This 155-nucleotide RNA sequence from Populus tomentosa belongs to the Rfam family "MIR2912 microRNA precursor family". The base pairs follow the family's consensus structure, which was predicted with RNAalifold.
RNA sequence: UCUAGAACUCGAGAUAUGGGCUGAAUACUGAACAGUGUCUAGGUUGUAGGACAGAUUUGGACUUCUCCAUUGUUGCUACAAUUUGAACUUGAAAAUAGCCUUUUUGAAUUUUGCACUCCCAUGAAAGUUUUAGGCCUAUGUCUUAGUUUUCCAUC
Numbered sequence: 001u002c003u004a005g006a007a008c009u010c011g012a013g014a015u016a017u018g019g020g021c022u023g024a025a026u027a028c029u030g031a032a033c034a035g036u037g038u039c040u041a042g043g044u045u046g047u048a049g050g051a052c053a054g055a056u057u058u059g060g061a062c063u064u065c066u067c068c069a070u071u072g073u074u075g076c077u078a079c080a081a082u083u084u085g086a087a088c089u090u091g092a093a094a095a096u097a098g099c100c101u102u103u104u105u106g107a108a109u110u111u112u113g114c115a116c117u118c119c120c121a122u123g124a125a126a127g128u129u130u131u132a133g134g135c136c137u138a139u140g141u142c143u144u145a146g147u148u149u150u151c152c153a154u155c
Base pairs, nucleotide, nucleotide: 003153005151006150007149008146009145011144012143013142014141015140016139017138018137019136020135021133022132023131024130025129027128028127029126035122036121037120042118043117045115046114048112049111050110051109054105055104059100060099062098063097072088073087074086